[Rfam]
RNA sequence: ACAACAAGAACAAAAAAACGCGACACACCAAUAAAAACAAGAUGUACGGCUCUGACAUAACAAGAACAACACGCACAGAGGCGCAGCCAACAGAUUUUUUUGGAGUCGAUAGUUUUCCGGGGCUUUGUCCUCGCAACCCGUCAAAGAACAACAAGACUGCCCAAGGCAGCUGCCCGACUGGUUGGAUCGUUUGAUGAAAGCUGAUCAGCGCUCAAAAAAAUACGUUUGCUCUUGAUCCCGUAUGGGGAUCGCCAAAGCGGUAACGGGUACGGUCACCAAAAACAACAACAGGCCACCCGAACAAUAAAAAGAGCAUACCAAGAAACCUUGAAGGGGAGCCCAGGCUCCCCUUCGUGCUAUGUGCGGUACAGCCACUGCCCAU
Numbered sequence: 001a002c003a004a005c006a007a008g009a010a011c012a013a014a015a016a017a018a019c020g021c022g023a024c025a026c027a028c029c030a031a032u033a034a035a036a037a038c039a040a041g042a043u044g045u046a047c048g049g050c051u052c053u054g055a056c057a058u059a060a061c062a063a064g065a066a067c068a069a070c071a072c073g074c075a076c077a078g079a080g081g082c083g084c085a086g087c088c089a090a091c092a093g094a095u096u097u098u099u100u101u102g103g104a105g106u107c108g109a110u111a112g113u114u115u116u117c118c119g120g121g122g123c124u125u126u127g128u129c130c131u132c133g134c135a136a137c138c139c140g141u142c143a144a145a146g147a148a149c150a151a152c153a154a155g156a157c158u159g160c161c162c163a164a165g166g167c168a169g170c171u172g173c174c175c176g177a178c179u180g181g182u183u184g185g186a187u188c189g190u191u192u193g194a195u196g197a198a199a200g201c202u203g204a205u206c207a208g209c210g211c212u213c214a215a216a217a218a219a220a221u222a223c224g225u226u227u228g229c230u231c232u233u234g235a236u237c238c239c240g241u242a243u244g245g246g247g248a249u250c251g252c253c254a255a256a257g258c259g260g261u262a263a264c265g266g267g268u269a270c271g272g273u274c275a276c277c278a279a280a281a282a283c284a285a286c287a288a289c290a291g292g293c294c295a296c297c298c299g300a301a302c303a304a305u306a307a308a309a310a311g312a313g314c315a316u317a318c319c320a321a322g323a324a325a326c327c328u329u330g331a332a333g334g335g336g337a338g339c340c341c342a343g344g345c346u347c348c349c350c351u352u353c354g355u356g357c358u359a360u361g362u363g364c365g366g367u368a369c370a371g372c373c374a375c376u377g378c379c380c381a382u
Stems, first nucleotide, its partner, number of pairs: 047083002050080004098217005112209002134184005140178001157169005235249005268363002271294003313357004331352009

The record is a 382-nucleotide RNA from Pseudomonas sp. StFLB209, which matches "Pseudomonas sRNA CrcZ" in Rfam. Rfam classes the family as a small RNA. The organism belongs to Pseudomonas, within Bacteria. For this family Rfam cites "Identification of 17 Pseudomonas aeruginosa sRNAs and prediction of sRNA-encoding genes in 10 diverse pathogens using the bioinformatic tool sRNAPredict2" (Livny et al., Nucleic Acids Res, 2006). Pairs were carried over by alignment from the consensus structure, which was predicted with WAR.